The record is a 62-nucleotide sequence from Mycobacterium sherrisii, which matches "Fluoride riboswitch aptamer (crcB RNA motif)" in Rfam. The family's consensus secondary structure is taken from published work. Lineage of the source: Bacteria > Bacillati > Actinomycetota > Mycobacteriaceae > Mycobacterium simiae complex.
[Rfam]
RNA sequence: AUUGACCCAGGCGAUGAAGCUCGCCUCAACCGCCGCACCCGGCUAAUGGCUUCUACCGCGCG
Numbered sequence: 001a002u003u004g005a006c007c008c009a010g011g012c013g014a015u016g017a018a019g020c021u022c023g024c025c026u027c028a029a030c031c032g033c034c035g036c037a038c039c040c041g042g043c044u045a046a047u048g049g050c051u052u053c054u055a056c057c058g059c060g061c062g
Stems, first nucleotide, its partner, number of pairs: 010025004016053006032043004